Rfam assigns this 76-nucleotide RNA sequence from Homo sapiens to the family "mir-320 microRNA precursor family". The organism belongs to Homo, within Eukaryota. A search with the family's covariance model found it, with a score of 78 bits. The literature on the family includes a 2006 paper in Genome Res by Berezikov et al., "Many novel mammalian microRNA candidates identified by extensive cloning and RAKE analysis".
[Rfam]
RNA sequence: CUUGACAUAAGCCUUCUCUUCUCAGUUCUUCCCCAAGUUAGGAAAAGCUGAGUUGAGAGGGGAAAAAAAAAUCUUA
Numbered sequence: 001c002u003u004g005a006c007a008u009a010a011g012c013c014u015u016c017u018c019u020u021c022u023c024a025g026u027u028c029u030u031c032c033c034c035a036a037g038u039u040a041g042g043a044a045a046a047g048c049u050g051a052g053u054u055g056a057g058a059g060g061g062g063a064a065a066a067a068a069a070a071a072u073c074u075u076a
Stems, first nucleotide, its partner, number of pairs: 014059005021052005029044004
Dot-bracket structure: .............(((((..(((((...((((........))))...)))))..))))).................